[Rfam]
RNA sequence: GGAGCAGCAACGAUGUUACGCAGCAGGGCAGUCGCCCUAAAACAAAGUUAGCCAUAUGAACUCGGAAUCAGUACGCAUU
Numbered sequence: 001g002g003a004g005c006a007g008c009a010a011c012g013a014u015g016u017u018a019c020g021c022a023g024c025a026g027g028g029c030a031g032u033c034g035c036c037c038u039a040a041a042a043c044a045a046a047g048u049u050a051g052c053c054a055u056a057u058g059a060a061c062u063c064g065g066a067a068u069c070a071g072u073a074c075g076c077a078u079u
Stems, first nucleotide, its partner, number of pairs: 004076001006017001008015002020055001023052002026037004038050003060072002
Dot-bracket structure: ...(.(.((....)).)..(..((.((((....))))(((.......)))))..)....((.........))...)...